[Rfam]
Notes:
Shown here is a 143-nucleotide RNA sequence from Neomonachus schauinslandi, a member of the family "U4 spliceosomal RNA". A search with the family's covariance model found it, with a score of 63 bits. The organism belongs to Neomonachus, within Eukaryota. Rfam classes the family as a spliceosomal small nuclear RNA.
RNA sequence: AGCUUUGUGCAGUGGCAGUAUCGUAGCCAAUGAGGUUUAACCAAGGCGUGAUUAUUGUUAAUUAUUGCCAUACCUGAUAUGCAGAAAACUCCCCUCUCCUCCAAAGAGAUCUAUGUUAUAAUUCCUGGAACCUAUGAAUAUGU
Numbered sequence: 001a002g003c004u005u006u007g008u009g010c011a012g013u014g015g016c017a018g019u020a021u022c023g024u025a026g027c028c029a030a031u032g033a034g035g036u037u038u039a040a041c042c043a044a045g046g047c048g049u050g051a052u053u054a055u056u057g058u059u060a061a062u063u064a065u066u067g068c069c070a071u072a073c074c075u076g077a078u079a080u081g082c083a084g085a086a087a088a089c090u091c092c093c094c095u096c097u098c099c100u101c102c103a104a105a106g107a108g109a110u111c112u113a114u115g116u117u118a119u120a121a122u123u124c125c126u127g128g129a130a131c132c133u134a135u136g137a138a139u140a141u142g143u
Stems, first nucleotide, its partner, number of pairs: 020052005026047003034042003079119003082115002085112001087110001089108003133142003